A member of the RNA family "Glycine riboswitch aptamer" from Mycobacterium heidelbergense, 98 nucleotides long. NCBI's taxonomy places the organism under Bacteria, Bacillati, Mycobacteriales, Mycobacteriaceae, Mycobacterium simiae complex. Rfam describes the family as follows. This family represents the bacterial glycine riboswitch.
RNA sequence: CGCACCUGCGCGGGAGAGUUCUGUGGCGGCCAGCCACGGACGCCGAAGGAGCAACACCUCUCCGUCAACCUCUCAGGCACCCGGACCGCGUGGGUUAA
Numbered sequence: 001c002g003c004a005c006c007u008g009c010g011c012g013g014g015a016g017a018g019u020u021c022u023g024u025g026g027c028g029g030c031c032a033g034c035c036a037c038g039g040a041c042g043c044c045g046a047a048g049g050a051g052c053a054a055c056a057c058c059u060c061u062c063c064g065u066c067a068a069c070c071u072c073u074c075a076g077g078c079a080c081c082c083g084g085a086c087c088g089c090g091u092g093g094g095u096u097a098a
Stems, first nucleotide, its partner, number of pairs: 006093008020040007042078003045074002049072003056065002